Annotation: Rfam assigns this 139-nucleotide RNA from Desmospora activa to the family "FMN riboswitch aptamer (RFN element)". Rfam 15.1 lists 6,230 matches to the family in 5,120 species.
RNA sequence: UCAAUCCUUCGGGGCUGGGUGAAAAUCCCGACCGGCGGUGAUGGAAACUUUUGUUUCCUCAGUCCGUGACCCGCGUUAAGCGGUUGAUCCGGUGUUAGUCCGGAACCGACAGUGAAAGUCUGGAUGGGAGAAGGAUGGA
Numbered sequence: 001u002c003a004a005u006c007c008u009u010c011g012g013g014g015c016u017g018g019g020u021g022a023a024a025a026u027c028c029c030g031a032c033c034g035g036c037g038g039u040g041a042u043g044g045a046a047a048c049u050u051u052u053g054u055u056u057c058c059u060c061a062g063u064c065c066g067u068g069a070c071c072c073g074c075g076u077u078a079a080g081c082g083g084u085u086g087a088u089c090c091g092g093u094g095u096u097a098g099u100c101c102g103g104a105a106c107c108g109a110c111a112g113u114g115a116a117a118g119u120c121u122g123g124a125u126g127g128g129a130g131a132a133g134g135a136u137g138g139a
Stems, first nucleotide, its partner, number of pairs: 004136007017029003031119002033108002035067004062106002071083002088104005110122003